[Rfam]
RNA sequence: GCAACCUGUCAUACUCGCGCCAGAACCGCACCGUGUUCCUGUCGAUGCUGGGCAAUUCCUGGUUCUGGUUCUACGGCGCGCUGGUGCUGUCGCAGUUCCCCGUCUUUGCCAAGGACUACCUG
Numbered sequence: 001g002c003a004a005c006c007u008g009u010c011a012u013a014c015u016c017g018c019g020c021c022a023g024a025a026c027c028g029c030a031c032c033g034u035g036u037u038c039c040u041g042u043c044g045a046u047g048c049u050g051g052g053c054a055a056u057u058c059c060u061g062g063u064u065c066u067g068g069u070u071c072u073a074c075g076g077c078g079c080g081c082u083g084g085u086g087c088u089g090u091c092g093c094a095g096u097u098c099c100c101c102g103u104c105u106u107u108g109c110c111a112a113g114g115a116c117u118a119c120c121u122g
Base pairs, nucleotide, nucleotide: 012047015044017042018041019040022037023036025034026033051121052120055117057115058114059113060112062110067099068098071095072094074092075091076090077089078088080087081086
Overview
The record is a 122-nucleotide sequence from Massilia horti, which matches "Burkholderia RNA 11" in Rfam. The match comes from Rfam's covariance-model search (62 bits). Co-purified with Hfq, expression confirmed by Northern blot.